[Rfam]
RNA sequence: AAAAGUUACAGCUCUUUCAGAAUUUGUCCAGCGGGUUUUCUGGUUUUUACUGGAAAAUAGCUCCA
Numbered sequence: 001a002a003a004a005g006u007u008a009c010a011g012c013u014c015u016u017u018c019a020g021a022a023u024u025u026g027u028c029c030a031g032c033g034g035g036u037u038u039u040c041u042g043g044u045u046u047u048u049a050c051u052g053g054a055a056a057a058u059a060g061c062u063c064c065a
Base pairs, nucleotide, nucleotide: 034062035061036060037056038055039054040053041052042051043050044049
A member of the RNA family "U7 small nuclear RNA" from Saimiri boliviensis, 65 nucleotides long. Pairs were carried over by alignment from the consensus structure, which was predicted with PFOLD. Animal histone pre-mRNAs are spliced by a different mechanism than nuclear pre-mRNAs and self-splicing introns. This processing involves the U7 snRNP, which contains only one RNA species: U7. The 5' end of U7 RNA is thought to base-pair to a conserved spacer element downstream of the cleavage site in histone pre-mRNA. This family contains a number of annotated U7 pseudogenes.